[Rfam]
A member of the RNA family "Qrr RNA" from Photobacterium lipolyticum, 103 nucleotides long. The literature on the family includes a 2007 paper in Genes Dev by Tu and Bassler, "Multiple small RNAs act additively to integrate sensory information and control quorum sensing in Vibrio harveyi". Rfam describes the family as follows. This family represents a set of small RNAs (the Qrr RNAs) that are thought to be involved in the regulation of quorum sensing in Vibrio species. The base pairs follow the family's consensus structure, which is taken from published work. Rfam classes the family as a small RNA.
RNA sequence: UGACUCUGAAUUAAGAGUCAACCUAGCCAACUGACGUUGUUUGUGGAUUUUUUCACUAAAACAAUGAGGCCAACCGAAAUAAUUAUCGGUUGGUUUUUUUUUG
Numbered sequence: 001u002g003a004c005u006c007u008g009a010a011u012u013a014a015g016a017g018u019c020a021a022c023c024u025a026g027c028c029a030a031c032u033g034a035c036g037u038u039g040u041u042u043g044u045g046g047a048u049u050u051u052u053u054c055a056c057u058a059a060a061a062c063a064a065u066g067a068g069g070c071c072a073a074c075c076g077a078a079a080u081a082a083u084u085a086u087c088g089g090u091u092g093g094u095u096u097u098u099u100u101u102u103g
Stems, first nucleotide, its partner, number of pairs: 001020006037067004043056005070093008
NCBI's taxonomy places the organism under Bacteria, Gammaproteobacteria, Vibrionales, Vibrionaceae, Photobacterium. It scores 79 bits against the family's covariance model.